Background: Rfam assigns this 111-nucleotide RNA sequence from Fictibacillus arsenicus to the family "BsrF". It is annotated as a small RNA. The base pairs follow the family's consensus structure, which was predicted with WAR. The match comes from Rfam's covariance-model search (83 bits). The literature on the family includes a 2008 paper in Gene by Saito et al., "Novel small RNA-encoding genes in the intergenic regions of Bacillus subtilis".

[Rfam]
RNA sequence: GCGAUGAGCUAAUUUGCAUAAGACGAGAUUGACGCGCCUUUUGGCAAUGCACUAUGUGGAGUGCUGUCUCUCGCCGCAAUACGCACAAAAAGACGUCCUAUUGGGCGUCUU
Numbered sequence: 001g002c003g004a005u006g007a008g009c010u011a012a013u014u015u016g017c018a019u020a021a022g023a024c025g026a027g028a029u030u031g032a033c034g035c036g037c038c039u040u041u042u043g044g045c046a047a048u049g050c051a052c053u054a055u056g057u058g059g060a061g062u063g064c065u066g067u068c069u070c071u072c073g074c075c076g077c078a079a080u081a082c083g084c085a086c087a088a089a090a091a092g093a094c095g096u097c098c099u100a101u102u103g104g105g106c107g108u109c110u111u
Stems, first nucleotide, its partner, number of pairs: 014079004024073005031068003036045002049064001051062003090111009